Shown here is an 82-nucleotide sequence from Octopus sinensis, a member of the family "mir-1 microRNA precursor family".

RNA sequence: UACUCAAUCACAUACUUUAUUAAACCACCACAUAAGAAACUAUAAGGUUAUGUGGUGGUUUAAUAAAGUAUGUGAUUGAGUA
Dot-bracket structure: ......(((((((((((((((((((..(((((..................)))))..)))))))))))))))))))......
From the family's description: This family represents the microRNA (miRNA) mir-1 family. miRNAs are transcribed as ~70nt precursors (modelled here) and subsequently processed by the Dicer enzyme to give a ~22nt product. In this case the mature sequence comes from the 3' arm of the precursor. The extents of the hairpin precursors are not generally known and are estimated based on hairpin prediction. The products are thought to have regulatory roles through complementarity to mRNA. The involvement of Dicer in miRNA processing suggests a relationship with the phenomenon of RNA interference. miRNAs are numbered based on the sequence of the mature RNA. This family also contains the mir-206 from human, which appears to be related to mir-1. A reference for the family is Lee and Ambros (2001), "An extensive class of small RNAs in Caenorhabditis elegans", Science.